[Rfam]
RNA sequence: UGCUCAUCCAGAGGGACUGAGGGAACGGCCCUGAGAAGUCCCGGCAACCGCCGCGAAUCCCCGUACGCACCAGUGCUUGAAGGUGCGUACGUCGCGGAAACGGUGCCAAAUCCGACCGUCGCGAGAGUCGCGCGGGCAGAUGAGAA
Number, nucleotide and partner (000 for none) at each position: 001u146002g000003c144004u143005c142006a141007u140008c139009c000010a000011g000012a000013g042014g041015g040016a039017c038018u000019g000020a000021g031022g030023g029024a000025a000026c114027g113028g112029c023030c022031c021032u000033g000034a000035g000036a000037a000038g017039u016040c015041c014042c013043g107044g106045c105046a104047a000048c103049c102050g000051c097052c096053g095054c094055g093056a092057a000058u000059c000060c000061c000062c000063g000064u000065a000066c000067g000068c000069a000070c000071c000072a000073g000074u000075g000076c000077u000078u000079g000080a000081a000082g000083g000084u000085g000086c000087g000088u000089a000090c000091g000092u056093c055094g054095c053096g052097g051098a000099a000100a000101c000102g049103g048104u046105g045106c044107c043108a000109a000110a000111u138112c028113c027114g026115a000116c135117c134118g133119u000120c132121g131122c130123g000124a000125g000126a000127g000128u000129c000130g122131c121132g120133c118134g117135g116136g000137c000138a111139g008140a007141u006142g005143a004144g003145a000146a001
RNA: SAM riboswitch aptamer (S box leader)
Organism: Nocardioides sp. Root614